Small nucleolar RNA R21: an 87-nucleotide RNA from Daucus carota. Gene Ontology terms of the family: RNA processing and nucleolus.

[Rfam]
RNA sequence: AAUCCCUGUGAAGAUUAGCAAUUCAAGUUAAUGUUAAAAGUAGUGGACUGAUAAUCUUUGCUGAAUAAUCUAUAUAUCUGAGGGAUU
Numbered sequence: 001a002a003u004c005c006c007u008g009u010g011a012a013g014a015u016u017a018g019c020a021a022u023u024c025a026a027g028u029u030a031a032u033g034u035u036a037a038a039a040g041u042a043g044u045g046g047a048c049u050g051a052u053a054a055u056c057u058u059u060g061c062u063g064a065a066u067a068a069u070c071u072a073u074a075u076a077u078c079u080g081a082g083g084g085a086u087u
Base pairs, nucleotide, nucleotide: 001087002086003085004084005083006082